[Rfam]
RNA sequence: AGAACAGGCCUUUCAGGCAUCCUCUCCUAAGACUCAUGGGCCGGCCUCUUCGAGGCUGGCCCUUUUUUUUUGCGCGG
Numbered sequence: 001a002g003a004a005c006a007g008g009c010c011u012u013u014c015a016g017g018c019a020u021c022c023u024c025u026c027c028u029a030a031g032a033c034u035c036a037u038g039g040g041c042c043g044g045c046c047u048c049u050u051c052g053a054g055g056c057u058g059g060c061c062c063u064u065u066u067u068u069u070u071u072g073c074g075c076g077g
Stems, first nucleotide, its partner, number of pairs: 008018004038062009

A member of the RNA family "Makes More Granules Regulator RNA (mmgR)" from Sphingobium sp. SYK-6, 77 nucleotides long. Rfam's curators write: SuhB later renamed mmgR (makes more granules regulator) was a putative non-coding RNA found multiple times in the Agrobacterium tumefaciens genome and related alpha-proteobacteria. Other non-coding RNAs uncovered in the same analysis include: speF, ybhL, metA, and serC.Several studies inSinorhizobium meliloti showed that suhB element is indeed a non-coding RNA:firstly it was detected on Northern blot and called Sm8RNA, secondly in an RNAseq study referred to as SmelC689.The mutant phenotype's (strain lacking the small RNA) cytoplasm contains higher content of polyhydroxybutyrate (PBH)storage granules than wild type strain. The sRNA is required to limit the PBH intracellular accumulation when the nitrogen-fixing Sinorhizobium meliloti is under condition of surplus carbon in relation to nitrogen. Taxonomically the source falls in Sphingobium (Bacteria, Pseudomonadati, Sphingomonadales, Sphingobiaceae). Rfam classes the family as a small RNA. Its family is annotated with protein binding, DNA-templated transcription, termination and response to nitrogen compound in the Gene Ontology.